[Rfam]
RNA sequence: GCAUGAAAAUAUAGAGCACUUCGUAUAACCCCAAUAAUAUGGUUUGGGGGUAUCUACCGGGGACCAAUAAUUCCUGCUUACGAAGAGAGUGUAUUAGUGU
Numbered sequence: 001g002c003a004u005g006a007a008a009a010u011a012u013a014g015a016g017c018a019c020u021u022c023g024u025a026u027a028a029c030c031c032c033a034a035u036a037a038u039a040u041g042g043u044u045u046g047g048g049g050g051u052a053u054c055u056a057c058c059g060g061g062g063a064c065c066a067a068u069a070a071u072u073c074c075u076g077c078u079u080a081c082g083a084a085g086a087g088a089g090u091g092u093a094u095u096a097g098u099g100u
Stems, first nucleotide, its partner, number of pairs: 019085007029049006058076006